The family of this 74-nucleotide RNA sequence from Candidatus Bodocaedibacter vickermanii is "tRNA". The family's consensus secondary structure is taken from published work. Taxonomically the source falls in Candidatus Bodocaedibacter (Bacteria, Pseudomonadota, Alphaproteobacteria, Candidatus Paracaedibacteraceae).

RNA sequence: CGGAGUGUAGCGCAGCCUGGUAGCGCACCACGCUGGGGGUGUGGGGGCCGUGGGUUCGAAUCCCGCCACUCCGA
Numbered sequence: 001c002g003g004a005g006u007g008u009a010g011c012g013c014a015g016c017c018u019g020g021u022a023g024c025g026c027a028c029c030a031c032g033c034u035g036g037g038g039g040u041g042u043g044g045g046g047g048c049c050g051u052g053g054g055u056u057c058g059a060a061u062c063c064c065g066c067c068a069c070u071c072c073g074a
Base pairs, nucleotide, nucleotide: 001073002072003071004070005069006068007067010026011025012024013023028044029043030042031041032040050066051065052064053063054062
Dot-bracket structure: (((((((..((((.........)))).(((((.......))))).....(((((.......)))))))))))).
It scores 59 bits against the family's covariance model. Rfam classes the family as a transfer RNA.